Source information: c-di-GMP-I riboswitch aptamer: a 97-nucleotide RNA sequence from Paenibacillus mucilaginosus.

[Rfam]
RNA sequence: UUACGAUAAAGGCAAACUCAUCGAAAGGUGGGGACGCAAAGCCACAGAUCUAAAGCCUUCAGUCCCGCUGACAGGCAAUGACCGCUGGGUUACCGAA
Numbered sequence: 001u002u003a004c005g006a007u008a009a010a011g012g013c014a015a016a017c018u019c020a021u022c023g024a025a026a027g028g029u030g031g032g033g034a035c036g037c038a039a040a041g042c043c044a045c046a047g048a049u050c051u052a053a054a055g056c057c058u059u060c061a062g063u064c065c066c067g068c069u070g071a072c073a074g075g076c077a078a079u080g081a082c083c084g085c086u087g088g089g090u091u092a093c094c095g096a097a
Stems, first nucleotide, its partner, number of pairs: 012037002017032006040091004045087003049081002055076004
Pairs were carried over by alignment from the consensus structure, which is taken from published work.